[Rfam]
Small nucleolar RNA SNORA15: a 138-nucleotide RNA sequence from Heliornis fulica. Gene Ontology terms of the family: nucleolus and RNA processing. ACA15 is a member of the H/ACA class of snoRNA that guide the sites of modification of uridines to pseudouridines. The family's consensus secondary structure was predicted with RNAfold.
RNA sequence: GCAUAGACGAAUUCUGCACUAGCUUUCCUCAGUAGCUAAUGCAGUCAGACACUAUGCCAGAAUAAAUUCCUCUUUCACACUCUGAUGGGUAUGCUUUUUAUAUGAGAAGUGGCAUGCCUUUGGAAGGGGGAUACACUA
Numbered sequence: 001g002c003a004u005a006g007a008c009g010a011a012u013u014c015u016g017c018a019c020u021a022g023c024u025u026u027c028c029u030c031a032g033u034a035g036c037u038a039a040u041g042c043a044g045u046c047a048g049a050c051a052c053u054a055u056g057c058c059a060g061a062a063u064a065a066a067u068u069c070c071u072c073u074u075u076c077a078c079a080c081u082c083u084g085a086u087g088g089g090u091a092u093g094c095u096u097u098u099u100a101u102a103u104g105a106g107a108a109g110u111g112g113c114a115u116g117c118c119u120u121u122g123g124a125a126g127g128g129g130g131a132u133a134c135a136c137u138a
Base pairs, nucleotide, nucleotide: 001057002056003055004054005053006052014044015043016042017041018040068131069130070129071127072126073125074124075123076122077121087119088118089117090116091115092114093113094112095111